[Rfam]
Record summary
Shown here is a 235-nucleotide RNA from Ruminococcaceae bacterium KH2T8, a member of the family "T-box leader". From the family's description: Uncharged tRNA acts as the effector for transcription antitermination of genes in the T-box leader family.
RNA sequence: CAAAAUGCGGUGAAGGAAACAAGUAGCUUCAGAUAUCGGGCUUUCAGAGAGUAUCCGGUCGGUGAGAGGAUAUAAGACGUGCUGAAGUGAAUACAUUCCGGAGCAGCGGCCUGAACAUAUUUAAGUAGGGUCAGUCGGGUGCGCCCGUUAAAGCGUCAGUGUCAUGUACACGUUGAGGGAUACAUCGCGAGGUGUAUCCGAACAUGAGGUGGUACCGCGAAUAUUCGUCCUCUGU
Numbered sequence: 001c002a003a004a005a006u007g008c009g010g011u012g013a014a015g016g017a018a019a020c021a022a023g024u025a026g027c028u029u030c031a032g033a034u035a036u037c038g039g040g041c042u043u044u045c046a047g048a049g050a051g052u053a054u055c056c057g058g059u060c061g062g063u064g065a066g067a068g069g070a071u072a073u074a075a076g077a078c079g080u081g082c083u084g085a086a087g088u089g090a091a092u093a094c095a096u097u098c099c100g101g102a103g104c105a106g107c108g109g110c111c112u113g114a115a116c117a118u119a120u121u122u123a124a125g126u127a128g129g130g131u132c133a134g135u136c137g138g139g140u141g142c143g144c145c146c147g148u149u150a151a152a153g154c155g156u157c158a159g160u161g162u163c164a165u166g167u168a169c170a171c172g173u174u175g176a177g178g179g180a181u182a183c184a185u186c187g188c189g190a191g192g193u194g195u196a197u198c199c200g201a202a203c204a205u206g207a208g209g210u211g212g213u214a215c216c217g218c219g220a221a222u223a224u225u226c227g228u229c230c231u232c233u234g235u
Stems, first nucleotide, its partner, number of pairs: 007104002015099004026088006041076002051073006107134001108132005136147003178199007206232004217228004
Background
Lineage of the source: Bacteria > Bacillota > Clostridia > Eubacteriales > Oscillospiraceae.